[Rfam]
RNA sequence: GUCACGGGAAUGUUAGCGGAAUCUUAUUGCCGCCCAAUUUUCGCCCAUCGCCCGCCCCCCUGAAUUGCAAAAAGAAAUCACUGCGCAAUGACCCGGUCCUUUCGGCUCCGGAUUCCUCAGCCCCCAGCCCCCCGGAGUUGUCGGGAUCGGGUCAGUUCGCAGCGCCAAAUCCCCAUACUGGGCCAACGAGAGUUGGUCCUUUU
Numbered sequence: 001g002u003c004a005c006g007g008g009a010a011u012g013u014u015a016g017c018g019g020a021a022u023c024u025u026a027u028u029g030c031c032g033c034c035c036a037a038u039u040u041u042c043g044c045c046c047a048u049c050g051c052c053c054g055c056c057c058c059c060c061u062g063a064a065u066u067g068c069a070a071a072a073a074g075a076a077a078u079c080a081c082u083g084c085g086c087a088a089u090g091a092c093c094c095g096g097u098c099c100u101u102u103c104g105g106c107u108c109c110g111g112a113u114u115c116c117u118c119a120g121c122c123c124c125c126a127g128c129c130c131c132c133c134g135g136a137g138u139u140g141u142c143g144g145g146a147u148c149g150g151g152u153c154a155g156u157u158c159g160c161a162g163c164g165c166c167a168a169a170u171c172c173c174c175a176u177a178c179u180g181g182g183c184c185a186a187c188g189a190g191a192g193u194u195g196g197u198c199c200u201u202u203u
Base pairs, nucleotide, nucleotide: 038050041047081162082161083160084159085158088157090153091152092151093150094149095148096147097146098145099144100143103140104139105138106137107136108135109134110133111132120128121127180199181198182197183196184195185194186193187192